[Rfam]
RNA sequence: CCAGGGGGCCGGGCAGCCGCUCCUUCGACAAGCUCAGGAUGAGCGGGUUGUUAGGAGAGGAAAGUCCGGGCUCCACGAAGCAAGGGUGGCGGGUAACACCCGCCCGGUGACCCCGGAUUACGUCCGGGGGAGCCGAGGGACAGUGCCACAGAGAGCAGACCGCCUGAUCCGUCAGGCAAGGGUGAAAGGGUGCGGUAAGAGCGCACCGGGGGGCUGGCGACAGUCUCCGCAUGGCAAACCCCACCCGGAGCAAGGCCAAAUAGGGACCUCGCGCCGAAAGGCAGGAACGCUUCGUUCCGAGAGGUCCGGGUUGGCUGCUUGAGCGCGCGAGCAAUCGCUCGCCCAGAUGAAUGGCUGCCCCUGCAUCAGCAGGACAGAACCCGGCUUACAGGCCCCCUGGCACU
Numbered sequence: 001c002c003a004g005g006g007g008g009c010c011g012g013g014c015a016g017c018c019g020c021u022c023c024u025u026c027g028a029c030a031a032g033c034u035c036a037g038g039a040u041g042a043g044c045g046g047g048u049u050g051u052u053a054g055g056a057g058a059g060g061a062a063a064g065u066c067c068g069g070g071c072u073c074c075a076c077g078a079a080g081c082a083a084g085g086g087u088g089g090c091g092g093g094u095a096a097c098a099c100c101c102g103c104c105c106g107g108u109g110a111c112c113c114c115g116g117a118u119u120a121c122g123u124c125c126g127g128g129g130g131a132g133c134c135g136a137g138g139g140a141c142a143g144u145g146c147c148a149c150a151g152a153g154a155g156c157a158g159a160c161c162g163c164c165u166g167a168u169c170c171g172u173c174a175g176g177c178a179a180g181g182g183u184g185a186a187a188g189g190g191u192g193c194g195g196u197a198a199g200a201g202c203g204c205a206c207c208g209g210g211g212g213g214c215u216g217g218c219g220a221c222a223g224u225c226u227c228c229g230c231a232u233g234g235c236a237a238a239c240c241c242c243a244c245c246c247g248g249a250g251c252a253a254g255g256c257c258a259a260a261u262a263g264g265g266a267c268c269u270c271g272c273g274c275c276g277a278a279a280g281g282c283a284g285g286a287a288c289g290c291u292u293c294g295u296u297c298c299g300a301g302a303g304g305u306c307c308g309g310g311u312u313g314g315c316u317g318c319u320u321g322a323g324c325g326c327g328c329g330a331g332c333a334a335u336c337g338c339u340c341g342c343c344c345a346g347a348u349g350a351a352u353g354g355c356u357g358c359c360c361c362u363g364c365a366u367c368a369g370c371a372g373g374a375c376a377g378a379a380c381c382c383g384g385c386u387u388a389c390a391g392g393c394c395c396c397c398u399g400g401c402a403c404u
Base pairs, nucleotide, nucleotide: 001400002399003398004397005396006395007394008393009392010391011389012359013358014357015356016355017354018353020057021056022055023054024053028049062387063386064385066384067383068382069381070380071250072249073248074247080292084246085245086244087243088242089103090102091101092100093099104137105135106134107133108132138241139240143239144238145235146234147233160181161180162177163176164175165174166173167172189207190206191205192204193203194202208230209228210227211226212225213224214223215222216221254316255315256314257313264307265306266305267304268303269302284298285297286296287295288294323342324341325340327338328337329336330335
RNA: Bacterial RNase P class A
Organism: Erythrobacter litoralis